This 50-nucleotide sequence from Escherichia coli belongs to the Rfam family "algC RNA". The source organism's lineage runs through Bacteria, Pseudomonadati, Pseudomonadota, Gammaproteobacteria and Escherichia coli. It is annotated as a cis-regulatory element. Rfam's curators put it in the seed alignment. The family's consensus secondary structure is taken from published work.

RNA sequence: ACAAAAUUGGCCAUUUCGGUCAGGGCCAACUAUUGCCUGAAAAAGGGUAA
Numbered sequence: 001a002c003a004a005a006a007u008u009g010g011c012c013a014u015u016u017c018g019g020u021c022a023g024g025g026c027c028a029a030c031u032a033u034u035g036c037c038u039g040a041a042a043a044a045g046g047g048u049a050a
Stems, first nucleotide, its partner, number of pairs: 009021004